[Rfam]
RNA sequence: UUGCCCAAUGAUUAUAGCAAGACGCGUUAUUAUGAGGACUAAUGCUGGAACUUUCUCCUCCUCCUUCUCCUUCUUCUCCUCCUCCUCCUUUGUCCCUUCCUCUUUCACCUUCUACCCCCCUCACUUUCCUUAGGGUAUCCAGCGUCCUAUGAGCGAGACUGAGAUAUGAGGGCAA
Numbered sequence: 001u002u003g004c005c006c007a008a009u010g011a012u013u014a015u016a017g018c019a020a021g022a023c024g025c026g027u028u029a030u031u032a033u034g035a036g037g038a039c040u041a042a043u044g045c046u047g048g049a050a051c052u053u054u055c056u057c058c059u060c061c062u063c064c065u066u067c068u069c070c071u072u073c074u075u076c077u078c079c080u081c082c083u084c085c086u087c088c089u090u091u092g093u094c095c096c097u098u099c100c101u102c103u104u105u106c107a108c109c110u111u112c113u114a115c116c117c118c119c120c121u122c123a124c125u126u127u128c129c130u131u132a133g134g135g136u137a138u139c140c141a142g143c144g145u146c147c148u149a150u151g152a153g154c155g156a157g158a159c160u161g162a163g164a165u166a167u168g169a170g171g172g173c174a175a
Stems, first nucleotide, its partner, number of pairs: 001175006035054003040049001
About this RNA
This 175-nucleotide RNA from Eulacestoma nigropectus belongs to the Rfam family "Small nucleolar RNA SNORD97". The source organism's lineage runs through Eukaryota, Metazoa, Neognathae, Telluraves and Eulacestoma. The base pairs follow the family's consensus structure, which was predicted with WAR. Rfam classes the family as a C/D-box small nucleolar RNA. Rfam links the family to the GO terms nucleolus and RNA processing. The literature on the family includes a 2003 paper in Nucleic Acids Res by Vitali et al., "Identification of 13 novel human modification guide RNAs".